Overview
Rfam assigns this 91-nucleotide RNA sequence from Ailuropoda melanoleuca to the family "mir-1388 microRNA precursor family". A reference for the family is Warren et al. (2010), "The genome of a songbird", Nature. The match comes from Rfam's covariance-model search (90 bits).
RNA sequence: CCUUGGGCAGCGCCUCCAGGACUGUCCAGCCUGAGAAUGGUGUCUCCAGGGUCAAUCUCAGGUUUGUCAGCCCGCGAGGUGCUACCCCUUC
Numbered sequence: 001c002c003u004u005g006g007g008c009a010g011c012g013c014c015u016c017c018a019g020g021a022c023u024g025u026c027c028a029g030c031c032u033g034a035g036a037a038u039g040g041u042g043u044c045u046c047c048a049g050g051g052u053c054a055a056u057c058u059c060a061g062g063u064u065u066g067u068c069a070g071c072c073c074g075c076g077a078g079g080u081g082c083u084a085c086c087c088c089u090u091c
Stems, first nucleotide, its partner, number of pairs: 005088003009083008019073002022070003026066001028064009038054002